[Rfam]
RNA sequence: AGCUGUAAUGGCUCAACGGUGAAGGCUCUCGAUAUUCUUGAAUUGUCCGAUCCAAACCCAUCAGAACCCCCCAGUCGGCGCCCUUCACGAAUGCCGCGGUGGCCGUCCACUCGCUCGGGUAACCAGCGAUGCUGCGCGCGGCCCUAAGCAAUGAAGAAGACACUUGAGGGAGGUUUCACUCUGCAGAGGCAUCUUCACCGUCGCAUGGCGUGGGGGAUUACGAUCGCUGGGGGCUUGGGUUGGCAGUUCGAGAUGGAGACGUCAACUCCACAUCUU
Number, nucleotide and partner (000 for none) at each position: 001a013002g012003c011004u000005g000006u000007a000008a000009u000010g000011g003012c002013u001014c000015a000016a000017c000018g000019g271020u270021g269022a000023a267024g266025g000026c000027u259028c258029u257030c256031g000032a254033u253034a000035u000036u000037c252038u251039u000040g249041a248042a000043u246044u245045g244046u000047c243048c242049g241050a240051u239052c238053c237054a236055a235056a000057c000058c000059c000060a000061u000062c000063a000064g000065a000066a000067c000068c000069c233070c232071c231072c229073a228074g227075u226076c000077g224078g000079c222080g221081c000082c216083c215084u214085u213086c212087a211088c210089g209090a000091a206092u205093g204094c203095c000096g201097c200098g199099g198100u000101g143102g000103c141104c140105g139106u138107c000108c136109a000110c134111u129112c128113g127114c126115u125116c000117g124118g123119g000120u000121a000122a000123c118124c117125a115126g114127c113128g112129a111130u000131g000132c000133u000134g110135c000136g108137c000138g106139c105140g104141g103142c000143c101144c148145u000146a000147a000148g144149c000150a000151a000152u197153g196154a195155a194156g193157a192158a000159g000160a000161c000162a000163c188164u187165u186166g000167a000168g000169g000170g181171a180172g179173g000174u000175u000176u000177c000178a000179c172180u171181c170182u000183g000184c000185a000186g165187a164188g163189g000190c000191a000192u157193c156194u155195u154196c153197a152198c099199c098200g097201u096202c000203g094204c093205a092206u091207g000208g000209c089210g088211u087212g086213g085214g084215g083216g082217a000218u000219u000220a000221c080222g079223a000224u077225c000226g075227c074228u073229g072230g000231g071232g070233g069234c000235u055236u054237g053238g052239g051240u050241u049242g048243g047244c045245a044246g043247u000248u041249c040250g000251a038252g037253a033254u032255g000256g030257a029258g028259a027260c000261g000262u000263c000264a000265a000266c024267u023268c000269c021270a020271c019272a000273u000274c000275u000276u000

A member of the RNA family "Fungal signal recognition particle RNA" from Plectosphaerella plurivora, 276 nucleotides long. The source organism's lineage runs through Eukaryota, Pezizomycotina, leotiomyceta, Sordariomycetes and Plectosphaerella.